c-di-GMP-I riboswitch aptamer: a 119-nucleotide RNA sequence from Candidatus Brocadia sapporoensis.
A search with the family's covariance model found it, with a score of 56 bits.
Rfam describes the family as follows. GEMM was predicted in a large-scale screen for bacterial structured RNA regulatory elements.
Pairs were carried over by alignment from the consensus structure, which is taken from published work.
Lineage of the source: Bacteria > Pseudomonadati > Planctomycetota > Candidatus Brocadiaceae > Candidatus Brocadia.
RNA sequence: UUACGAUAAGGGCAAACCCUGAGUAAUCAGGGGACGCAAAGCAAAGGGUCUUUGAGAGCACAGAGAAGUGAGUUCCUUAGACAACCUUACUGUACACAAAAAACAGCCUUACUGCCGAA
Numbered sequence: 001u002u003a004c005g006a007u008a009a010g011g012g013c014a015a016a017c018c019c020u021g022a023g024u025a026a027u028c029a030g031g032g033g034a035c036g037c038a039a040a041g042c043a044a045a046g047g048g049u050c051u052u053u054g055a056g057a058g059c060a061c062a063g064a065g066a067a068g069u070g071a072g073u074u075c076c077u078u079a080g081a082c083a084a085c086c087u088u089a090c091u092g093u094a095c096a097c098a099a100a101a102a103a104c105a106g107c108c109u110u111a112c113u114g115c116c117g118a119a
Stems, first nucleotide, its partner, number of pairs: 012037002017032006040113002043110001045109003048104002